Plastid-psbA-1 3UTR RNA: a 110-nucleotide sequence from Protea cynaroides. Rfam's curators write: Plastid psbA-1 is a non-coding RNA (ncRNA) present in plastids. It was identified in inverted repeat sequences in the 3 prime untranslate region (3UTR) of photosystem II quinone-binding protein (psbA).
RNA sequence: UAGAUACUCAAAUGAGGGCCGGGAUGUUAUUCAUCGUCUUAGUGUAUACAAGUUGUUGAAGGAGCAAUACCGCAUUUCUUGUUUUAUCAAGAGGUUGGUAUUGCUCCUUC
Numbered sequence: 001u002a003g004a005u006a007c008u009c010a011a012a013u014g015a016g017g018g019c020c021g022g023g024a025u026g027u028u029a030u031u032c033a034u035c036g037u038c039u040u041a042g043u044g045u046a047u048a049c050a051a052g053u054u055g056u057u058g059a060a061g062g063a064g065c066a067a068u069a070c071c072g073c074a075u076u077u078c079u080u081g082u083u084u085u086a087u088c089a090a091g092a093g094g095u096u097g098g099u100a101u102u103g104c105u106c107c108u109u110c
Stems, first nucleotide, its partner, number of pairs: 058110013072096001074095001076093005